[Rfam]
RNA sequence: UUUGGGGGAAGUAGUGGUCCGUUAGAUUGGGGUAAAAGACAUCAUCCCUUGAGGUAAAAUUAGGUUUGCUUCCUUUUACUCCCAAAAUCUUUUUACCGUGGGUAAAAAGAAUCAUCAAGGGGUAUAAAAGGAACUAAAUUUAAAUUUAACUCAAAGGGUCUUGAUGUCGUUUUCCCCAACAGGACGGAUCACUAUAUUCCCCAAG
Number, nucleotide and partner (000 for none) at each position: 001u000002u000003u203004g202005g201006g200007g199008g198009a197010a000011g195012u194013a193014g192015u191016g190017g189018u188019c187020c186021g185022u184023u183024a000025g000026a000027u179028u178029g177030g176031g175032g174033u000034a172035a171036a000037a000038g000039a000040c000041a165042u164043c163044a162045u158046c157047c156048c000049u154050u153051g152052a151053g150054g000055u148056a147057a146058a145059a000060u143061u142062a141063g140064g139065u138066u137067u136068g135069c000070u133071u132072c131073c130074u129075u128076u127077u124078a123079c122080u121081c120082c119083c000084a000085a000086a000087a000088u000089c109090u108091u107092u106093u105094u104095a103096c102097c101098g000099u000100g000101g097102g096103u095104a094105a093106a092107a091108a090109g089110a000111a000112u000113c000114a000115u000116c000117a000118a000119g082120g081121g080122g079123u078124a077125u000126a000127a076128a075129a074130g073131g072132a071133a070134c000135u068136a067137a066138a065139u064140u063141u062142a061143a060144a000145u058146u057147u056148a055149a000150c053151u052152c051153a050154a049155a000156g047157g046158g045159u000160c000161u000162u044163g043164a042165u041166g000167u000168c000169g000170u000171u035172u034173u000174c032175c031176c030177c029178a028179a027180c000181a000182g000183g023184a022185c021186g020187g019188a018189u017190c016191a015192c014193u013194a012195u011196a000197u009198u008199c007200c006201c005202c004203a003204a000205g000
RNA: MIR2670 microRNA precursor family